RNA: Mammalian CPEB3 ribozyme
Organism: Alligator mississippiensis
RNA sequence: AGUUACAAGUUUGAGGCCAUAGCAGAAAUGCUCAUGGUGUGGCCUGUCAGAUUCCAAUGAAUCUGACAAUUCUUCU
Numbered sequence: 001a002g003u004u005a006c007a008a009g010u011u012u013g014a015g016g017c018c019a020u021a022g023c024a025g026a027a028a029u030g031c032u033c034a035u036g037g038u039g040u041g042g043c044c045u046g047u048c049a050g051a052u053u054c055c056a057a058u059g060a061a062u063c064u065g066a067c068a069a070u071u072c073u074u075c076u
Base pairs, nucleotide, nucleotide: 015044016043017042018041021076022075024073025072026071027070028040029039030038048065049064050063051062052061053060054059